[Rfam]
RNA sequence: UUCGGAUCAGUGAUGUUGUAUAUUACUACGUUAUCUAUCUGUAAUAAAUUCUUUUUUUGAAGAUAACUUAUUAUCCCGAGAUCCAAU
Dot-bracket structure: .(.((((.........................................................................)))).).
RNA: Small nucleolar RNA snoR27
Organism: Salvia splendens